[Rfam]
RNA sequence: CGGGUGUGCUCAGAGCAGGGGGCCCAAAGAAUGGCCCCUCUGUUUAUAACACACCCAAGAGGAAUCUGGGCUCAUUUGUAACCAGGAGCACACAACUUGUGGCUUUCCUAUGAACAAAUGCCUUACAUAU
Numbered sequence: 001c002g003g004g005u006g007u008g009c010u011c012a013g014a015g016c017a018g019g020g021g022g023c024c025c026a027a028a029g030a031a032u033g034g035c036c037c038c039u040c041u042g043u044u045u046a047u048a049a050c051a052c053a054c055c056c057a058a059g060a061g062g063a064a065u066c067u068g069g070g071c072u073c074a075u076u077u078g079u080a081a082c083c084a085g086g087a088g089c090a091c092a093c094a095a096c097u098u099g100u101g102g103c104u105u106u107c108c109u110a111u112g113a114a115c116a117a118a119u120g121c122c123u124u125a126c127a128u129a130u
Base pairs, nucleotide, nucleotide: 002056003055004054005053006052007051008050013045014044015043016042017041018040019039020038021037022035023034024033069123070122072120077116078115079114082112085105086104089101090100091099092098
Rfam assigns this 130-nucleotide RNA sequence from Echinops telfairi to the family "Small nucleolar RNA SNORA11".
The sequence is in the family's curated seed alignment.
U107 (SNORA11) is a member of the H/ACA class of snoRNAs that guide the sites of modification of uridines to pseudouridines.